[Rfam]
RNA sequence: UUAUAAAGACAAGCUUUUGAACUGUUUUUCACUCUCUGACAGAGAACAAUUUGUUCUUUGAUAGAGAGGGACAUAACAGUUCAAUAGCUAAAACAUCCUAUAAG
Numbered sequence: 001u002u003a004u005a006a007a008g009a010c011a012a013g014c015u016u017u018u019g020a021a022c023u024g025u026u027u028u029u030c031a032c033u034c035u036c037u038g039a040c041a042g043a044g045a046a047c048a049a050u051u052u053g054u055u056c057u058u059u060g061a062u063a064g065a066g067a068g069g070g071a072c073a074u075a076a077c078a079g080u081u082c083a084a085u086a087g088c089u090a091a092a093a094c095a096u097c098c099u100a101u102a103a104g
Base pairs, nucleotide, nucleotide: 001103002102003101004100005099012089013088014087015086017084018083019082020081021080022079023078024077025076026065027064028063029061030060031059045055046054047053048052
Annotation
The family of this 104-nucleotide sequence from Plutella xylostella is "mir-8517 microRNA precursor family". A search with the family's covariance model found it, with a score of 76 bits.